Rfam assigns this 84-nucleotide RNA from Sarcophilus harrisii to the family "mir-15 microRNA precursor family". Pairs were carried over by alignment from the consensus structure, which was predicted with RNAalifold. The family is grouped with related families in Rfam's "mir-15 clan".
RNA sequence: CCCGAAAGUCCUCUAGCAGCACAUCAUGGUUUACAUGUUCUUGCCCAGAUGCGAAUCAUUAUUUGCUGCUUUAGGAAUUUAAGG
Numbered sequence: 001c002c003c004g005a006a007a008g009u010c011c012u013c014u015a016g017c018a019g020c021a022c023a024u025c026a027u028g029g030u031u032u033a034c035a036u037g038u039u040c041u042u043g044c045c046c047a048g049a050u051g052c053g054a055a056u057c058a059u060u061a062u063u064u065g066c067u068g069c070u071u072u073a074g075g076a077a078u079u080u081a082a083g084g
Stems, first nucleotide, its partner, number of pairs: 001084002005080002015070007023062002026059007034051003

The literature on the family includes a 2001 paper in Science by Lagos-Quintana et al., "Identification of novel genes coding for small expressed RNAs".